[Rfam]
RNA sequence: CGCAUAUUUUGCGCAGGCGGAGCUCGACCGCCGACCGAAAUGAUGAUCACGUUUAUUGACGAUCACCGGCCGCUCUACGGGGUCGAGCCGAUCUGCAGGGUGCUGCCGAUCGCCCCG
Numbered sequence: 001c002g003c004a005u006a007u008u009u010u011g012c013g014c015a016g017g018c019g020g021a022g023c024u025c026g027a028c029c030g031c032c033g034a035c036c037g038a039a040a041u042g043a044u045g046a047u048c049a050c051g052u053u054u055a056u057u058g059a060c061g062a063u064c065a066c067c068g069g070c071c072g073c074u075c076u077a078c079g080g081g082g083u084c085g086a087g088c089c090g091a092u093c094u095g096c097a098g099g100g101u102g103c104u105g106c107c108g109a110u111c112g113c114c115c116c117g
Stems, first nucleotide, its partner, number of pairs: 016032005078117005089112002092109002095106004
RNA: ALIL pseudoknot